RNA sequence: GCACCUCACAACAACCCUGUUGAUUCUAUCUGUUUGAUAUGGGUUAUGCUGGUGCAACAGAGAGUCAAUGUAAAUCCAGAUGGACGUCCUCUAUUUAUGGAGUCUGUCUCUACAGCUUUGAUACACCG
Numbered sequence: 001g002c003a004c005c006u007c008a009c010a011a012c013a014a015c016c017c018u019g020u021u022g023a024u025u026c027u028a029u030c031u032g033u034u035u036g037a038u039a040u041g042g043g044u045u046a047u048g049c050u051g052g053u054g055c056a057a058c059a060g061a062g063a064g065u066c067a068a069u070g071u072a073a074a075u076c077c078a079g080a081u082g083g084a085c086g087u088c089c090u091c092u093a094u095u096u097a098u099g100g101a102g103u104c105u106g107u108c109u110c111u112a113c114a115g116c117u118u119u120g121a122u123a124c125a126c127c128g
Stems, first nucleotide, its partner, number of pairs: 001055005013045005021037001065121004070116001078109008091100003